[Rfam]
The family of this 65-nucleotide RNA sequence from Neomoorella humiferrea is "Fluoride riboswitch aptamer (crcB RNA motif)".
Nucleotides: 065
Stems, first nucleotide, its partner, number of pairs: 010025004016056006033046004
Number, partner (000 for none) and nucleotide at each position: 001000u002000a003000a004000c005000g006000u007000c008000u009000a010025g011024g012023c013022g014000a015000u016056g017055g018054a019053g020052u021051u022013c023012g024011c025010c026000u027000u028000u029000a030000a031000a032000u033046c034045u035044g036043c037000g038000u039000u040000a041000u042000c043036g044035c045034a046033g047000u048000g049000a050000u051021g052020a053019c054018u055017c056016c057000u058000a059000c060000c061000c062000c063000g064000a065000a